[Rfam]
Nucleotides: 058
Stems, first nucleotide, its partner, number of pairs: 001052012013039001018035006
Number, partner (000 for none) and nucleotide at each position: 001052c002051a003050g004049g005048a006047g007046u008045a009044a010043u011042a012041c013039c014000c015000a016000a017000u018035u019034u020033c021032u022031u023030g024000u025000u026000c027000u028000g029000u030023c031022a032021a033020g034019a035018g036000g037000u038000c039013g040000g041012g042011u043010a044009u045008u046007g047006c048005u049004c050003c051002u052001g053000c054000a055000u056000u057000u058000u
Plastid-psbA-3 3UTR RNA: a 58-nucleotide sequence from Trollius chinensis. NCBI's taxonomy places the organism under Eukaryota, Viridiplantae, Tracheophyta, Ranunculoideae, Trollius. The literature on the family includes a 2023 paper in Plant Commun by Richter et al., "Retrograde signaling in plants: A critical review focusing on the GUN pathway and beyond". Its Rfam clan is "Plastid-psbA 3UTR RNA clan". The family's consensus secondary structure was predicted with LocARNA.